[Rfam]
RNA sequence: AAAAAUUGCAUAGUUAUACCGUAGACAGUAGGUGCAUGUAAUGCUUAAUUUCCUACCGAGGUGUUUUAUUACUUUUAUGAUCAUUGUACAUUCAUAAUAAUAAUGCCUCCAUGUCUAAAAUGGAGGCAAUUUUUAUGUGUAAAG
Dot-bracket structure: ...........................(((((.(((.....))).......)))))...............................................(((((((((.......)))))))))................

This 144-nucleotide RNA sequence from Pseudogracilibacillus auburnensis belongs to the Rfam family "Ribosomal protein L10 leader". On this family, see Iben and Draper, Biochemistry 2008: "Specific interactions of the L10(L12)4 ribosomal protein complex with mRNA, rRNA, and L11". The family's consensus secondary structure was predicted with CMfinder. About the family: This family is a putative r-protein leader autoregulatory structure found in B. subtilis and other low-GC Gram-positive bacteria. It is located in the 5' untranslated regions of mRNAs encoding ribosomal proteins L10 and L12 (rplJ-rplL). A Rho-independent transcription terminator structure that is probably involved in regulation is included at the 3' end. It scores 88 bits against the family's covariance model. The source organism's lineage runs through Bacteria, Bacilli, Caryophanales, Bacillaceae and Pseudogracilibacillus.